[Rfam]
RNA sequence: UGACGCCCAACAUGGGGCUCCAGAACGGGGGAUCCAGUGAAGGACACCAUUCGAGUGGCUGGCAGAAAGAAAAGAAAAGAGGGAAUGACGUGGGAACCUGCUGUGUCUGCACCCCUCGGGUAAGUGAACGGUGAUUAUGGGUCAAGAAAUGAGCCAACAUAAGAUGUUCGUUGAAGGAUUAGGAAAGGCUCUCAAGGCACGAGGAGUAAAGGUAAAUAUUAAGCAUUUGUGUCAGUAUUUUGAUUAUACUAAGGAAGUUUGCCCUU
Numbered sequence: 001u002g003a004c005g006c007c008c009a010a011c012a013u014g015g016g017g018c019u020c021c022a023g024a025a026c027g028g029g030g031g032a033u034c035c036a037g038u039g040a041a042g043g044a045c046a047c048c049a050u051u052c053g054a055g056u057g058g059c060u061g062g063c064a065g066a067a068a069g070a071a072a073a074g075a076a077a078a079g080a081g082g083g084a085a086u087g088a089c090g091u092g093g094g095a096a097c098c099u100g101c102u103g104u105g106u107c108u109g110c111a112c113c114c115c116u117c118g119g120g121u122a123a124g125u126g127a128a129c130g131g132u133g134a135u136u137a138u139g140g141g142u143c144a145a146g147a148a149a150u151g152a153g154c155c156a157a158c159a160u161a162a163g164a165u166g167u168u169c170g171u172u173g174a175a176g177g178a179u180u181a182g183g184a185a186a187g188g189c190u191c192u193c194a195a196g197g198c199a200c201g202a203g204g205a206g207u208a209a210a211g212g213u214a215a216a217u218a219u220u221a222a223g224c225a226u227u228u229g230u231g232u233c234a235g236u237a238u239u240u241u242g243a244u245u246a247u248a249c250u251a252a253g254g255a256a257g258u259u260u261g262c263c264c265u266u
Base pairs, nucleotide, nucleotide: 006031007030008029014026037047038046079117080116081115082113083112086111089105090104091103092102093101125144126143127142129141132139133138151192153189154188155187200242201241202240203239204238206236207235210228211227212226213225251266252265253264254263
This 266-nucleotide sequence from Molossus molossus belongs to the Rfam family "Mason-Pfizer monkey virus packaging signal". Taxonomically the source falls in Molossus (Eukaryota, Gnathostomata, Mammalia, Laurasiatheria). From the family's description: This family represents a group of sequences that are related to the Mason-Pfizer monkey virus (MPMV) packaging signal. The family has 9 seed sequences and 2,921 matches in Rfam 15.1. On this family, see Mustafa et al., Virus Res 2004: "Mutational analysis of the predicted secondary RNA structure of the Mason-Pfizer monkey virus packaging signal".